A member of the RNA family "TPP riboswitch aptamer (THI element)" from Anaerocolumna cellulosilytica, 99 nucleotides long. The base pairs follow the family's consensus structure, which is taken from published work.
RNA sequence: AAUAGUUUGCGGGGGGACUGCUUGCAGUUGAGAAGGAUAAAACCUGACCCUUAGAACCUGACGGUUAACACCGUGGUAGGGAGCAAGGAAUCUAUGCAA
Numbered sequence: 001a002a003u004a005g006u007u008u009g010c011g012g013g014g015g016g017a018c019u020g021c022u023u024g025c026a027g028u029u030g031a032g033a034a035g036g037a038u039a040a041a042a043c044c045u046g047a048c049c050c051u052u053a054g055a056a057c058c059u060g061a062c063g064g065u066u067a068a069c070a071c072c073g074u075g076g077u078a079g080g081g082a083g084c085a086a087g088g089a090a091u092c093u094a095u096g097c098a099a
Base pairs, nucleotide, nucleotide: 006087007086008085009084010083011051012050013049014048016045017028018027019026020025035044036043057080058079059078060077061074062073063072064071
About the family: Vitamin B(1) in its active form thiamin pyrophosphate (TPP) is an essential coenzyme that is synthesised by coupling of pyrimidine and thiazole moieties in bacteria. The organism belongs to Anaerocolumna, within Bacteria.